[Rfam]
RNA sequence: CACUCCUGUUUCUGCCCUAAAUUCAUCCUCAUUGAAUUAUAGGUUCUGGUGAUGGAGAAGAUCAAGCUCGUGAAUGGCCGUCAGCAAUCUGUCAAAUGUUUGUAACCUGCUGGCGGUUUCAUUUGCGGGAUCGUGUGGCUGGUCAGUGGUCGAAGACAAGGCAUUACUAUGGUGCAUGUCGGCUGGUCUCCACUACAUUC
Numbered sequence: 001c002a003c004u005c006c007u008g009u010u011u012c013u014g015c016c017c018u019a020a021a022u023u024c025a026u027c028c029u030c031a032u033u034g035a036a037u038u039a040u041a042g043g044u045u046c047u048g049g050u051g052a053u054g055g056a057g058a059a060g061a062u063c064a065a066g067c068u069c070g071u072g073a074a075u076g077g078c079c080g081u082c083a084g085c086a087a088u089c090u091g092u093c094a095a096a097u098g099u100u101u102g103u104a105a106c107c108u109g110c111u112g113g114c115g116g117u118u119u120c121a122u123u124u125g126c127g128g129g130a131u132c133g134u135g136u137g138g139c140u141g142g143u144c145a146g147u148g149g150u151c152g153a154a155g156a157c158a159a160g161g162c163a164u165u166a167c168u169a170u171g172g173u174g175c176a177u178g179u180c181g182g183c184u185g186g187u188c189u190c191c192a193c194u195a196c197a198u199u200c
Stems, first nucleotide, its partner, number of pairs: 003057004016043004020038006067129010077117010135193004141188005155180003160175001162174005
About this RNA:
This 200-nucleotide RNA sequence from Candidozyma haemuli belongs to the Rfam family "Small nucleolar RNA snR43". The match comes from Rfam's covariance-model search (116 bits). The family's RNA type in Rfam is H/ACA-box small nucleolar RNA. Gene Ontology terms of the family: nucleolus and RNA processing. The base pairs follow the family's consensus structure, which is taken from published work. Lineage of the source: Eukaryota > Saccharomycotina > Serinales > Metschnikowiaceae > Candidozyma. The literature on the family includes a 1996 paper in Cell by Balakin et al., "The RNA world of the nucleolus: two major families of small RNAs defined by different box elements with related functions".